[Rfam]
RNA sequence: UUGCAAUCCGCUAACCGGUCAAGCCGUGUCGCGGAAGGUUAGAUUAACCCGCUGAACUUCGGCAGACCCGAAGAAAGGUGAGCA
Numbered sequence: 001u002u003g004c005a006a007u008c009c010g011c012u013a014a015c016c017g018g019u020c021a022a023g024c025c026g027u028g029u030c031g032c033g034g035a036a037g038g039u040u041a042g043a044u045u046a047a048c049c050c051g052c053u054g055a056a057c058u059u060c061g062g063c064a065g066a067c068c069c070g071a072a073g074a075a076a077g078g079u080g081a082g083c084a
Stems, first nucleotide, its partner, number of pairs: 002084003007035005016026004037049004050080004057073006
Dot-bracket structure: .(((..(((((....((((...))))....))))).((((.....))))((((...((((((.....))))))...)))).)))
SucA RNA motif: an 84-nucleotide sequence from Imbroritus primus. NCBI's taxonomy places the organism under Bacteria, Pseudomonadati, Burkholderiales, Burkholderiaceae, Imbroritus. The family's consensus secondary structure is taken from published work.